SAM riboswitch aptamer (S box leader): a 108-nucleotide RNA from Sulfoacidibacillus thermotolerans.
Rfam describes the family as follows. The SAM riboswitch is found upstream of a number of genes which code for proteins involved in methionine or cysteine biosynthesis in Gram-positive bacteria.
For this family Rfam cites "The S box regulon: a new global transcription termination control system for methionine and cysteine biosynthesis genes in gram-positive bacteria" (Grundy and Henkin, Mol Microbiol, 1998).
Pairs were carried over by alignment from the consensus structure, which is taken from published work.
RNA sequence: CUCUUAUCGAGAGUGGCGGAGGGACUGGCCCGAUGAAGCCCGGCAACCGACAGCUUUUGCUGUAGUGGUGCCAAUUCCAGCAGGCGAUUGUGACCUGAAAGAUGAGAG
Numbered sequence: 001c002u003c004u005u006a007u008c009g010a011g012a013g014u015g016g017c018g019g020a021g022g023g024a025c026u027g028g029c030c031c032g033a034u035g036a037a038g039c040c041c042g043g044c045a046a047c048c049g050a051c052a053g054c055u056u057u058u059g060c061u062g063u064a065g066u067g068g069u070g071c072c073a074a075u076u077c078c079a080g081c082a083g084g085c086g087a088u089u090g091u092g093a094c095c096u097g098a099a100a101g102a103u104g105a106g107a108g
Base pairs, nucleotide, nucleotide: 001108002107003106004105005104006103007102008101013041015040016039017038021031022030023029025080026079027078028077042072043071044070045069047068048067050063051062052061076100081097082096083095084094